[Rfam]
RNA sequence: GAAGUUGGCCGGAUAGUCGCUGGAUGCUAUUGCAUUGAGAGGAAAGUCCGGGCUCCAUAGAGCAAAGUGCUAGUUAACGGCUAGGCGCAGUGAUGCGACGGAAAGUGCAGCAGAAAAUAAACCGCCUACUUAGGUAGGUAAGGGUGAAAUGGUGUGGUAAGAGCACACCGCAAACUUAGUGAUAAGUUUGGCAUGGUAAACCCCACUUGGAGCAAGCUCAAAUAGGGAGGCAUUGGCGCUGCUCGCGUUGUCUUCGGGUAGAGUGCUCAAGAUUCUUGGUAACAGGUUUCGUAGAUGAAUGACUAUCAUGGCUUCGGUCAUACAGAACCCGGCUUAUAGGCCAACUUCAACU
Numbered sequence: 001g002a003a004g005u006u007g008g009c010c011g012g013a014u015a016g017u018c019g020c021u022g023g024a025u026g027c028u029a030u031u032g033c034a035u036u037g038a039g040a041g042g043a044a045a046g047u048c049c050g051g052g053c054u055c056c057a058u059a060g061a062g063c064a065a066a067g068u069g070c071u072a073g074u075u076a077a078c079g080g081c082u083a084g085g086c087g088c089a090g091u092g093a094u095g096c097g098a099c100g101g102a103a104a105g106u107g108c109a110g111c112a113g114a115a116a117a118u119a120a121a122c123c124g125c126c127u128a129c130u131u132a133g134g135u136a137g138g139u140a141a142g143g144g145u146g147a148a149a150u151g152g153u154g155u156g157g158u159a160a161g162a163g164c165a166c167a168c169c170g171c172a173a174a175c176u177u178a179g180u181g182a183u184a185a186g187u188u189u190g191g192c193a194u195g196g197u198a199a200a201c202c203c204c205a206c207u208u209g210g211a212g213c214a215a216g217c218u219c220a221a222a223u224a225g226g227g228a229g230g231c232a233u234u235g236g237c238g239c240u241g242c243u244c245g246c247g248u249u250g251u252c253u254u255c256g257g258g259u260a261g262a263g264u265g266c267u268c269a270a271g272a273u274u275c276u277u278g279g280u281a282a283c284a285g286g287u288u289u290c291g292u293a294g295a296u297g298a299a300u301g302a303c304u305a306u307c308a309u310g311g312c313u314u315c316g317g318u319c320a321u322a323c324a325g326a327a328c329c330c331g332g333c334u335u336a337u338a339g340g341c342c343a344a345c346u347u348c349a350a351c352u
Stems, first nucleotide, its partner, number of pairs: 001348010011337001012307007020039002023036005044335003048332005053212004060244004065208005070084005085099001086097004100203002105201002107197002122143002124139006151169006170192001171190008216264004226255006235249005271290002275286004
RNA: Bacterial RNase P class A
Organism: Pseudothioglobus singularis